[Rfam]
RNA sequence: UAUAGAGGAAGAACGGCGUCCCCACAUCCUGUGGCAACGCUGUUCUGAUCCACAUCCUGUGGG
Number, nucleotide and partner (000 for none) at each position: 001u000002a000003u000004a000005g000006a000007g000008g000009a000010a000011g045012a044013a043014c042015g041016g040017c039018g000019u000020c000021c000022c034023c033024a032025c031026a000027u000028c000029c000030u000031g025032u024033g023034g022035c000036a000037a000038c000039g017040c016041u015042g014043u013044u012045c011046u000047g000048a000049u063050c062051c061052a060053c059054a000055u000056c000057c000058u000059g053060u052061g051062g050063g049
This 63-nucleotide sequence from Peribacillus saganii belongs to the Rfam family "Bacillaceae-1 RNA". The base pairs follow the family's consensus structure, which is taken from published work. Taxonomically the source falls in Peribacillus (Bacteria, Bacillota, Bacilli, Caryophanales).